[Rfam]
The family of this 65-nucleotide RNA sequence from Flavobacterium enshiense is "S15-Flavobacteria ribosomal protein leader".
RNA sequence: UAACUUUGCACCCGUAUUGAGACUGUCUCAAUUUACAUAAUAAUCAUUUUAAAAAUAUUAGCAUG
Numbered sequence: 001u002a003a004c005u006u007u008g009c010a011c012c013c014g015u016a017u018u019g020a021g022a023c024u025g026u027c028u029c030a031a032u033u034u035a036c037a038u039a040a041u042a043a044u045c046a047u048u049u050u051a052a053a054a055a056u057a058u059u060a061g062c063a064u065g
Stems, first nucleotide, its partner, number of pairs: 016032005
By type it is a cis-regulatory leader. NCBI's taxonomy places the organism under Bacteria, Pseudomonadati, Bacteroidota, Flavobacterium, Flavobacterium enshiense. A reference for the family is Eckert and Weinberg (2020), "Discovery of 20 novel ribosomal leader candidates in bacteria and archaea", BMC Microbiol.